Shown here is an 84-nucleotide sequence from Salvelinus namaycush, a member of the family "Small nucleolar RNA snR60/Z15/Z230/Z193/J17". On this family, see Tycowski et al., Curr Biol 2004: "Guide RNAs with 5' caps and novel box C/D snoRNA-like domains for modification of snRNAs in metazoa".
RNA sequence: UUGAUACAAUGAUGACAGCAUAGUUCAGCUGAUACUCUAUGAUGAAUACUCAGCAUUGUCUUUCGCUCCUAUCUGAUGUAGCCU
Numbered sequence: 001u002u003g004a005u006a007c008a009a010u011g012a013u014g015a016c017a018g019c020a021u022a023g024u025u026c027a028g029c030u031g032a033u034a035c036u037c038u039a040u041g042a043u044g045a046a047u048a049c050u051c052a053g054c055a056u057u058g059u060c061u062u063u064c065g066c067u068c069c070u071a072u073c074u075g076a077u078g079u080a081g082c083c084u
Base pairs, nucleotide, nucleotide: 005080006079007078008077
Record summary
NCBI's taxonomy places the organism under Eukaryota, Teleostomi, Neopterygii, Clupeocephala, Salvelinus. The family has 23 seed sequences and 3,592 matches in Rfam 15.1.